[Rfam]
RNA: Small nucleolar RNA Z155
RNA sequence: CGUUGAUAUGAGGAUAACAUUUGCUGAAAAAAAAGUGUUGACUGAAAAAAAAUCAGACUACAAUUAUCUGAUCAACG
Numbered sequence: 001c002g003u004u005g006a007u008a009u010g011a012g013g014a015u016a017a018c019a020u021u022u023g024c025u026g027a028a029a030a031a032a033a034a035g036u037g038u039u040g041a042c043u044g045a046a047a048a049a050a051a052a053u054c055a056g057a058c059u060a061c062a063a064u065u066a067u068c069u070g071a072u073c074a075a076c077g
Base pairs, nucleotide, nucleotide: 001077002076003075004074005073006072